RNA sequence: AGUACCUUUAACUCAGUCCAGAGAGGCUGUCAAGGUAGCGUGAAUAGUUGAAUCGAAUUGCUUGGAAUGGACAUUCUCCGCUAGCGCUGAGCGCGCAAGUGGGCUUGCCCUACGCUAAACAGGCAAUUCACAUAAACUAACGCACUCCUUGCGCAACCCGCAAGGAGUUUUUUUAU
Number, nucleotide and partner (000 for none) at each position: 001a000002g000003u037004a036005c035006c034007u033008u032009u000010a000011a000012c000013u000014c029015a028016g027017u026018c025019c000020a000021g000022a000023g000024a000025g018026g017027c016028u015029g014030u000031c000032a008033a007034g006035g005036u004037a003038g000039c000040g000041u000042g000043a000044a000045u000046a000047g137048u136049u135050g000051a133052a000053u000054c000055g129056a128057a127058u126059u125060g124061c123062u122063u121064g120065g000066a000067a000068u000069g000070g000071a000072c000073a000074u000075u000076c000077u000078c000079c000080g000081c000082u000083a000084g000085c000086g000087c000088u000089g000090a000091g000092c000093g000094c000095g000096c000097a000098a000099g000100u000101g000102g000103g000104c000105u000106u000107g000108c000109c000110c000111u000112a000113c000114g000115c000116u000117a000118a000119a000120c064121a063122g062123g061124c060125a059126a058127u057128u056129c055130a000131c000132a000133u051134a000135a049136a048137c047138u000139a000140a172141c000142g170143c000144a168145c167146u166147c165148c164149u163150u162151g161152c160153g159154c000155a000156a000157c000158c000159c153160g152161c151162a150163a149164g148165g147166a146167g145168u144169u000170u142171u000172u140173u000174u000175a000176u000

Shown here is a 176-nucleotide sequence from Paenibacillus baekrokdamisoli, a member of the family "PyrR binding site". Rfam 15.1 lists 1,498 matches to the family in 930 species. By type it is a cis-regulatory element. The literature on the family includes a 2001 paper in Nucleic Acids Res by Bonner et al., "Molecular recognition of pyr mRNA by the Bacillus subtilis attenuation regulatory protein PyrR".